Shown here is a 107-nucleotide sequence from Populus trichocarpa, a member of the family "MIR6450 microRNA precursor family". Its family is annotated with miRNA-mediated post-transcriptional gene silencing and RISC complex in the Gene Ontology.

RNA sequence: AGGACCCAGUUCUCUUGAGUCCUGCGUCCGGACCCAGUACUAUUGGGUCUUGCAACAUGACUCAGUGCUCCUGGGUUCAGUGUUAGGACCCAAGGCUAAUGGGUCCU
Numbered sequence: 001a002g003g004a005c006c007c008a009g010u011u012c013u014c015u016u017g018a019g020u021c022c023u024g025c026g027u028c029c030g031g032a033c034c035c036a037g038u039a040c041u042a043u044u045g046g047g048u049c050u051u052g053c054a055a056c057a058u059g060a061c062u063c064a065g066u067g068c069u070c071c072u073g074g075g076u077u078c079a080g081u082g083u084u085a086g087g088a089c090c091c092a093a094g095g096c097u098a099a100u101g102g103g104u105c106c107u
Base pairs, nucleotide, nucleotide: 001107002106003105004104005103006102007101008100013095014094015093016092017091019089020088021087022086023085024084030078031077032076033075034074035073036072037071043065044064045063046062047061048060049059
The base pairs follow the family's consensus structure, which was predicted with RNAalifold.